A member of the RNA family "c-di-AMP riboswitch aptamer (ydaO/yuaA leader)" from Cohnella candida, 137 nucleotides long.
The organism belongs to Cohnella, within Bacteria.
Its family is annotated with cyclic-di-AMP binding and regulation of gene expression in the Gene Ontology.
[Rfam]
RNA sequence: GUGAAAAAAUUGCCGAAUUCCCGUGCACCGGGAAACGGGGGAACCAUUACGGGUGAAUUGGCCUCGCAACACAGUGGCCAUAGGGAACCUUCAACCGAACCCUCCAGCUAACCUCGUAGGCAUCGGAAGGGGACACC
Numbered sequence: 001g002u003g004a005a006a007a008a009a010u011u012g013c014c015g016a017a018u019u020c021c022c023g024u025g026c027a028c029c030g031g032g033a034a035a036c037g038g039g040g041g042a043a044c045c046a047u048u049a050c051g052g053g054u055g056a057a058u059u060g061g062c063c064u065c066g067c068a069a070c071a072c073a074g075u076g077g078c079c080a081u082a083g084g085g086a087a088c089c090u091u092c093a094a095c096c097g098a099a100c101c102c103u104c105c106a107g108c109u110a111a112c113c114u115c116g117u118a119g120g121c122a123u124c125g126g127a128a129g130g131g132g133a134c135a136c137c
Stems, first nucleotide, its partner, number of pairs: 011122004018034006035117006051102003059080004083096002